This 107-nucleotide RNA from Bowmanella sp. JS7-9 belongs to the Rfam family "Gammaprotebacteria rimP leader". On this family, see Naville and Gautheret, Genome Biol 2010: "Premature terminator analysis sheds light on a hidden world of bacterial transcriptional attenuation". Lineage of the source: Bacteria > Pseudomonadati > Pseudomonadota > Alteromonadaceae > Bowmanella. It is annotated as a cis-regulatory leader. The family's consensus secondary structure is taken from published work. The match comes from Rfam's covariance-model search (59 bits).
[Rfam]
RNA sequence: AAUGAAGUCAGUGGACAAAGGGUCCAAAAUAAAAAGCCCCGCUUAGCACGGGGCUUUUUGUUAUUCCCGAUUUUUACCAAGGGUCUGGGCGCGUAUGCCCUUUUUUU
Numbered sequence: 001a002a003u004g005a006a007g008u009c010a011g012u013g014g015a016c017a018a019a020g021g022g023u024c025c026a027a028a029a030u031a032a033a034a035a036g037c038c039c040c041g042c043u044u045a046g047c048a049c050g051g052g053g054c055u056u057u058u059u060g061u062u063a064u065u066c067c068c069g070a071u072u073u074u075u076a077c078c079a080a081g082g083g084u085c086u087g088g089g090c091g092c093g094u095a096u097g098c099c100c101u102u103u104u105u106u107u
Stems, first nucleotide, its partner, number of pairs: 033057009087100004